Shown here is a 97-nucleotide sequence from Pleuronectes platessa, a member of the family "Z30 small nucleolar RNA". On this family, see Galardi et al., Mol Cell Biol 2002: "Purified box C/D snoRNPs are able to reproduce site-specific 2'-O-methylation of target RNA in vitro". Taxonomically the source falls in Pleuronectes (Eukaryota, Euacanthomorphacea, Pleuronectoidei, Pleuronectidae). Rfam classes the family as a C/D-box small nucleolar RNA. Gene Ontology terms of the family: nucleolus and RNA processing.
RNA sequence: CUGCACUGAUGACCGUAGAUGUGACUGACCUGGUAUUUCUGGCCUCCGGGUCGGUUCUGACCAGGAAAUGACUUCAGUUAAUCUUCUCUCUGAGCAA
Numbered sequence: 001c002u003g004c005a006c007u008g009a010u011g012a013c014c015g016u017a018g019a020u021g022u023g024a025c026u027g028a029c030c031u032g033g034u035a036u037u038u039c040u041g042g043c044c045u046c047c048g049g050g051u052c053g054g055u056u057c058u059g060a061c062c063a064g065g066a067a068a069u070g071a072c073u074u075c076a077g078u079u080a081a082u083c084u085u086c087u088c089u090c091u092g093a094g095c096a097a
Stems, first nucleotide, its partner, number of pairs: 003095002039054003
The base pairs follow the family's consensus structure, which was predicted with PFOLD.